[Rfam]
RNA sequence: UGUUAUUUUGGAGAUGGAGUUCUCCUGAACUCUUUGCCCAGGCAGGCUGGCCUCGAACUGUGGUUCUUGAUGGCUCCUGCCUGUAA
Numbered sequence: 001u002g003u004u005a006u007u008u009u010g011g012a013g014a015u016g017g018a019g020u021u022c023u024c025c026u027g028a029a030c031u032c033u034u035u036g037c038c039c040a041g042g043c044a045g046g047c048u049g050g051c052c053u054c055g056a057a058c059u060g061u062g063g064u065u066c067u068u069g070a071u072g073g074c075u076c077c078u079g080c081c082u083g084u085a086a
Base pairs, nucleotide, nucleotide: 010025011024012023013022016077017076018075019074020073021072